RNA sequence: UUCCAGGUGGUCCUCAGUGGUCUGAGGUACAGGCUUCAAACCUUUGGCUCUGAGACAACAGAGUGGUUCAAUUCCAUCUCCUGGGU
Number, nucleotide and partner (000 for none) at each position: 001u000002u085003c084004c083005a082006g081007g080008u000009g078010g000011u000012c027013c026014u025015c024016a023017g022018u000019g000020g000021u000022c017023u016024g015025a014026g013027g012028u046029a045030c000031a043032g042033g041034c000035u000036u000037c000038a000039a000040a000041c033042c032043u031044u000045u029046g028047g000048c063049u062050c061051u060052g059053a000054g000055a000056c000057a000058a000059c052060a051061g050062a049063g048064u000065g075066g074067u000068u000069c000070a000071a000072u000073u000074c066075c065076a000077u000078c009079u000080c007081c006082u005083g004084g003085g002086u000
This 86-nucleotide RNA sequence from Chelydra serpentina belongs to the Rfam family "Selenocysteine transfer RNA". A search with the family's covariance model found it, with a score of 53 bits.